[Rfam]
RNA sequence: UCACACUCAUCGGGGGGCUACUCAUUCGUUAAGAAUGACGCUGAGAUCAAAGCUUGCUUUGGGACCCGUAAACCUGAACCAGAUAAUGCUGGCGUAGGAAUUGGGUCUGGAUUACUG
Numbered sequence: 001u002c003a004c005a006c007u008c009a010u011c012g013g014g015g016g017g018c019u020a021c022u023c024a025u026u027c028g029u030u031a032a033g034a035a036u037g038a039c040g041c042u043g044a045g046a047u048c049a050a051a052g053c054u055u056g057c058u059u060u061g062g063g064a065c066c067c068g069u070a071a072a073c074c075u076g077a078a079c080c081a082g083a084u085a086a087u088g089c090u091g092g093c094g095u096a097g098g099a100a101u102u103g104g105g106u107c108u109g110g111a112u113u114a115c116u117g
Base pairs, nucleotide, nucleotide: 006105007104008103009102011068012067013066014065017041018040021037048061049060050059051058052057073098074097075096076095079092080091081090082089
RNA: TPP riboswitch aptamer (THI element)